[Rfam]
RNA sequence: GUGUUCUGAGUUGCGCAGAGGCCGAAAAACUCGGAGAUCAUGUAUUGUCAUCAGCUUCGUCUCUGCUUAUCCUGUGAGAUGGGAGUUAAAUAACACCACGAGAUUC
Numbered sequence: 001g002u003g004u005u006c007u008g009a010g011u012u013g014c015g016c017a018g019a020g021g022c023c024g025a026a027a028a029a030c031u032c033g034g035a036g037a038u039c040a041u042g043u044a045u046u047g048u049c050a051u052c053a054g055c056u057u058c059g060u061c062u063c064u065g066c067u068u069a070u071c072c073u074g075u076g077a078g079a080u081g082g083g084a085g086u087u088a089a090a091u092a093a094c095a096c097c098a099c100g101a102g103a104u105u106c
Stems, first nucleotide, its partner, number of pairs: 041100003046095002053087006060079004